[Rfam]
This 54-nucleotide RNA from Bagarius yarrelli belongs to the Rfam family "UnaL2 LINE 3' element".
RNA sequence: AAAAAUGAGAAAUGUAAGUUGCUCUGGAUAAGAGCGUCUGCCAAAUGCUGUAAA
Numbered sequence: 001a002a003a004a005a006u007g008a009g010a011a012a013u014g015u016a017a018g019u020u021g022c023u024c025u026g027g028a029u030a031a032g033a034g035c036g037u038c039u040g041c042c043a044a045a046u047g048c049u050g051u052a053a054a
Base pairs, nucleotide, nucleotide: 013043014041015040016039020036021035022034023033024032025031

The match comes from Rfam's covariance-model search (56 bits).
It is annotated as a cis-regulatory element.
Gene Ontology term of the family: transposition, RNA-mediated.
Rfam's curators write: The eel long interspersed element (LINE) UnaL2 and its partner short interspersed element (SINE) share a conserved 3' tail containing a stem-loop that is critical for their retrotransposition. Presumably, the first step of retrotransposition is the recognition of their 3' tails by UnaL2-encoded reverse transcriptase.
NCBI's taxonomy places the organism under Eukaryota, Deuterostomia, Osteoglossocephalai, Siluroidei, Bagarius.